[Rfam]
RNA sequence: CGUGUACCAGUGGGGUCCCUUGGCCUGGCCUGUGCGAUCAGGCCAAAACUGGCUCUCUGACAUCCCCCAAGGGGUCCCGGAUUGCGAGAGGGCACAGGCCAGGCCAAGGGACCCCACCGGUGCACA
Numbered sequence: 001c002g003u004g005u006a007c008c009a010g011u012g013g014g015g016u017c018c019c020u021u022g023g024c025c026u027g028g029c030c031u032g033u034g035c036g037a038u039c040a041g042g043c044c045a046a047a048a049c050u051g052g053c054u055c056u057c058u059g060a061c062a063u064c065c066c067c068c069a070a071g072g073g074g075u076c077c078c079g080g081a082u083u084g085c086g087a088g089a090g091g092g093c094a095c096a097g098g099c100c101a102g103g104c105c106a107a108g109g110g111a112c113c114c115c116a117c118c119g120g121u122g123c124a125c126a
Stems, first nucleotide, its partner, number of pairs: 003124002006121001008119001010117001012115014027100008